[Rfam]
RNA sequence: UUUACUAGCUUUGAAGGGACGAUGAGUGGCCAAUGGUAAACUAAUUCUAUUUUUAGCAAAAAUGUAUACACAUUUACUUGCAAAAUAGGAUUAGUCUGCUCAUUUAUCAUAUUUCGAAGAACCUAAAAUAUUUAAUAUAGGUGUAUUUGUCAUGCAUAAAUGAAUACAUAUACUGACUAAUCCUUCCAAAUUAAUGGGAGAAUUUUUUG
Dot-bracket structure: ...............((.(...((((..(.(..........((((((((((((....(.((((((....))))))..)...))))))))))))).)..))))..).))..............(.((.((.............)).)).).............................(((.((((((......)))))).))).....
Numbered sequence: 001u002u003u004a005c006u007a008g009c010u011u012u013g014a015a016g017g018g019a020c021g022a023u024g025a026g027u028g029g030c031c032a033a034u035g036g037u038a039a040a041c042u043a044a045u046u047c048u049a050u051u052u053u054u055a056g057c058a059a060a061a062a063u064g065u066a067u068a069c070a071c072a073u074u075u076a077c078u079u080g081c082a083a084a085a086u087a088g089g090a091u092u093a094g095u096c097u098g099c100u101c102a103u104u105u106a107u108c109a110u111a112u113u114u115c116g117a118a119g120a121a122c123c124u125a126a127a128a129u130a131u132u133u134a135a136u137a138u139a140g141g142u143g144u145a146u147u148u149g150u151c152a153u154g155c156a157u158a159a160a161u162g163a164a165u166a167c168a169u170a171u172a173c174u175g176a177c178u179a180a181u182c183c184u185u186c187c188a189a190a191u192u193a194a195u196g197g198g199a200g201a202a203u204u205u206u207u208u209g
Stems, first nucleotide, its partner, number of pairs: 016108002019105001023102004029096001031094001042093012058078001060075006123149001125147002128144002179204003183200006
A member of the RNA family "Bacillus sRNA ncr1575" from Psychrobacillus glaciei, 209 nucleotides long. The source organism's lineage runs through Bacteria, Bacillota, Bacilli, Bacillaceae and Psychrobacillus. By type it is a small RNA. On this family, see Irnov et al., Nucleic Acids Res 2010: "Identification of regulatory RNAs in Bacillus subtilis".